Nucleotides: 061
Stems, first nucleotide, its partner, number of pairs: 001059003005055003010050001012048006019041004
Number, partner (000 for none) and nucleotide at each position: 001059u002058c003057u004000c005055c006054a007053u008000u009000u010050c011000a012048c013047a014046u015045g016044c017043u018000c019041u020040c021039u022038c023000a024000c025000c026000g027000g028000u029000c030000a031000g032000a033000g034000a035000g036000g037000c038022g039021a040020g041019a042000a043017a044016g045015c046014a047013u048012g049000c050010g051000a052000c053007a054006u055005g056000a057003g058002g059001a060000g061000a

The family of this 61-nucleotide sequence from Pristionchus pacificus is "mir-8364 microRNA precursor family".
The source organism's lineage runs through Eukaryota, Eumetazoa, Bilateria, Chromadorea and Pristionchus.